Rfam assigns this 96-nucleotide RNA from Gonium pectorale to the family "Small nucleolar RNA Z43". Rfam classes the family as a C/D-box small nucleolar RNA. The base pairs follow the family's consensus structure, which was predicted with PFOLD.
[Rfam]
RNA sequence: GAGCAAUGAUGGCUAUGUCUCGUUCGGUGUAUUGGCGAAAUUACCAACCAAGCCAUGCCGACAAAAUUUUUAUAUCACCACUCACAAUCUGAGCUC
Numbered sequence: 001g002a003g004c005a006a007u008g009a010u011g012g013c014u015a016u017g018u019c020u021c022g023u024u025c026g027g028u029g030u031a032u033u034g035g036c037g038a039a040a041u042u043a044c045c046a047a048c049c050a051a052g053c054c055a056u057g058c059c060g061a062c063a064a065a066a067u068u069u070u071u072a073u074a075u076c077a078c079c080a081c082u083c084a085c086a087a088u089c090u091g092a093g094c095u096c
Base pairs, nucleotide, nucleotide: 001096002095003094004093040056041055042051
Taxonomically the source falls in Gonium (Eukaryota, Viridiplantae, Chlorophyceae, Chlamydomonadales). For this family Rfam cites "The high diversity of snoRNAs in plants: identification and comparative study of 120 snoRNA genes from Oryza sativa" (Chen et al., Nucleic Acids Res, 2003).